[Rfam]
RNA sequence: AAAACGCUGCCCGAGUUUGUAAAACAAACUCGCAUUAUUGUAUACACUUUUUCAGCUUCGCUUACAAAAGUCUAGGAAUUCGACAGUCCUCGAAAUCUAAUGAUUUCUGCGGUUGUCGAAUUUAUAU
Numbered sequence: 001a002a003a004a005c006g007c008u009g010c011c012c013g014a015g016u017u018u019g020u021a022a023a024a025c026a027a028a029c030u031c032g033c034a035u036u037a038u039u040g041u042a043u044a045c046a047c048u049u050u051u052u053c054a055g056c057u058u059c060g061c062u063u064a065c066a067a068a069a070g071u072c073u074a075g076g077a078a079u080u081c082g083a084c085a086g087u088c089c090u091c092g093a094a095a096u097c098u099a100a101u102g103a104u105u106u107c108u109g110c111g112g113u114u115g116u117c118g119a120a121u122u123u124a125u126a127u
Stems, first nucleotide, its partner, number of pairs: 013031008044073001046071006078121009088112002092107006
Rfam assigns this 127-nucleotide sequence from Treponema pedis to the family "TD-1 RNA". Clan: TD (Treponema denticola) motifs. By type it is a cis-regulatory element. Pairs were carried over by alignment from the consensus structure, which is taken from published work. NCBI's taxonomy places the organism under Bacteria, Treponematales, Treponemataceae, Treponema, Treponema pedis. A reference for the family is Weinberg et al. (2007), "Identification of 22 candidate structured RNAs in bacteria using the CMfinder comparative genomics pipeline", Nucleic Acids Res.